[Rfam]
RNA sequence: CUUUCCGCGUUAAUCUCGUUAAGACAGGGAAAAUAGCGGAAUCAGAACGUUGCCUGAUGGCACACACGCAGCAAUGGCGUAAGACGUAGCGUGAAAUCAAGCAAUUAGCGGGCUGCGGGUCGCAGCCUGGCCGGCAUAAUGGAAUGAGAUCUGUCGACGUAACUGAGAGGCUAUUCCCCUACAAAGAGCGCUGCUUUUCACAAAGAAAGGCAGGCUUACCGAAGUAAUGCGCCCCUAUGCAGGCGACAACCGGGAGGUUGACGGCUUUGCGAGAAGACACGGGGCCAACGGUAACACCGGUCAGGAGGUUAUUUUGCCCGCAGCUUUAUCGACAA
Numbered sequence: 001c002u003u004u005c006c007g008c009g010u011u012a013a014u015c016u017c018g019u020u021a022a023g024a025c026a027g028g029g030a031a032a033a034u035a036g037c038g039g040a041a042u043c044a045g046a047a048c049g050u051u052g053c054c055u056g057a058u059g060g061c062a063c064a065c066a067c068g069c070a071g072c073a074a075u076g077g078c079g080u081a082a083g084a085c086g087u088a089g090c091g092u093g094a095a096a097u098c099a100a101g102c103a104a105u106u107a108g109c110g111g112g113c114u115g116c117g118g119g120u121c122g123c124a125g126c127c128u129g130g131c132c133g134g135c136a137u138a139a140u141g142g143a144a145u146g147a148g149a150u151c152u153g154u155c156g157a158c159g160u161a162a163c164u165g166a167g168a169g170g171c172u173a174u175u176c177c178c179c180u181a182c183a184a185a186g187a188g189c190g191c192u193g194c195u196u197u198u199c200a201c202a203a204a205g206a207a208a209g210g211c212a213g214g215c216u217u218a219c220c221g222a223a224g225u226a227a228u229g230c231g232c233c234c235c236u237a238u239g240c241a242g243g244c245g246a247c248a249a250c251c252g253g254g255a256g257g258u259u260g261a262c263g264g265c266u267u268u269g270c271g272a273g274a275a276g277a278c279a280c281g282g283g284g285c286c287a288a289c290g291g292u293a294a295c296a297c298c299g300g301u302c303a304g305g306a307g308g309u310u311a312u313u314u315u316g317c318c319c320g321c322a323g324c325u326u327u328a329u330c331g332a333c334a335a
Base pairs, nucleotide, nucleotide: 003041004040005039006038007037008036014030015029016028017027050104051103052102053101055099056098057097061093062092063091066087067086068085071078072077110326111325112324113323114322115321116320117319118318119317120316128303129302130301131300132299133298134297141177142176143175144174145173150168151167152166187216188215189214191213192212193211194210196208197207198206199205218292219291220290221289231285232284233283234282235281244263245262247260248259249258250257251256